[Rfam]
RNA: Acido-Lenti-1 RNA
RNA sequence: CCCAGCGCUAUGCGCUGGGCUAACAUGUUACGCGCUUGCAGCGCU
Dot-bracket structure: ((((((((...))))))))............(((((...))))).